RNA sequence: GUAAUCGUGAGAUUACAUCUGAAGAAAGCAGGACUACAAAUUCUGGUACUGACGAACAGGAACCUUAUAUGAGGCUAUUAGGUUGGAUAAGCAAGCACAUCAUUGUAAAGUCCAAAACACGUAAAGUGAUAACCGAAAUAGUAGAUAAGGCAGGGAUCAGAAGAAAGAAGACGCU
Numbered sequence: 001g002u003a004a005u006c007g008u009g010a011g012a013u014u015a016c017a018u019c020u021g022a023a024g025a026a027a028g029c030a031g032g033a034c035u036a037c038a039a040a041u042u043c044u045g046g047u048a049c050u051g052a053c054g055a056a057c058a059g060g061a062a063c064c065u066u067a068u069a070u071g072a073g074g075c076u077a078u079u080a081g082g083u084u085g086g087a088u089a090a091g092c093a094a095g096c097a098c099a100u101c102a103u104u105g106u107a108a109a110g111u112c113c114a115a116a117a118c119a120c121g122u123a124a125a126g127u128g129a130u131a132a133c134c135g136a137a138a139u140a141g142u143a144g145a146u147a148a149g150g151c152a153g154g155g156a157u158c159a160g161a162a163g164a165a166a167g168a169a170g171a172c173g174c175u
Stems, first nucleotide, its partner, number of pairs: 001016006028175001031172001037167001041162006047155001049153003063150006074142003078137002081134004085113004091106004
Dot-bracket structure: ((((((....))))))...........(..(.....(...(((((((.(((...........((((((.....(((.((.((((((((..((((........))))...)))).................)))).))..)))..))))))))).).))))))....)....)..)

A member of the RNA family "Group II catalytic intron D1-D4-3" from Maribacter sp. ACAM166, 175 nucleotides long. Pairs were carried over by alignment from the consensus structure. Gene Ontology term of the family: Group II intron splicing.